RNA sequence: UACUGUUAAUGAUGAUAUUGUAUGAAACAAUGGGAAUCUCUCUGAAAGUUAAUGAUGAAAGAAUUAUACUGAAACAGUA
Numbered sequence: 001u002a003c004u005g006u007u008a009a010u011g012a013u014g015a016u017a018u019u020g021u022a023u024g025a026a027a028c029a030a031u032g033g034g035a036a037u038c039u040c041u042c043u044g045a046a047a048g049u050u051a052a053u054g055a056u057g058a059a060a061g062a063a064u065u066a067u068a069c070u071g072a073a074a075c076a077g078u079a
Stems, first nucleotide, its partner, number of pairs: 001079007